[Rfam]
Annotation: A member of the RNA family "Alphaproteobacterial ar14" from Maritimibacter fusiformis, 119 nucleotides long. For this family Rfam cites "A survey of sRNA families in alpha-proteobacteria" (del Val et al., RNA Biol, 2012). From the family's description: Smr14C2 was renamed NfeR1 (Nodule Formation Efficiency RNA) highly expressed in salt stress and during the symbiotic interaction on legume roots. Rfam 15.1 lists 784 matches to the family in 332 species. The source organism's lineage runs through Bacteria, Pseudomonadati, Rhodobacterales, Roseobacteraceae and Maritimibacter.
RNA sequence: CGGACCCGACCCGGCCCUUCCUCCUCCCCGGGCCGGCAAGGACGCAAAGGGCUUUCCCUCCCGAAGGCCAGUUGCAGAUGAACGGCGUCGCCCACCUCCUCCCGGGCGACGCCGUUUUU
Numbered sequence: 001c002g003g004a005c006c007c008g009a010c011c012c013g014g015c016c017c018u019u020c021c022u023c024c025u026c027c028c029c030g031g032g033c034c035g036g037c038a039a040g041g042a043c044g045c046a047a048a049g050g051g052c053u054u055u056c057c058c059u060c061c062c063g064a065a066g067g068c069c070a071g072u073u074g075c076a077g078a079u080g081a082a083c084g085g086c087g088u089c090g091c092c093c094a095c096c097u098c099c100u101c102c103c104g105g106g107c108g109a110c111g112c113c114g115u116u117u118u119u
Base pairs, nucleotide, nucleotide: 007040011036012035013034014033015032016031017030045074046073047072050069051068052067053066054065083114084113085112086111087110088109089108090107091106092105093104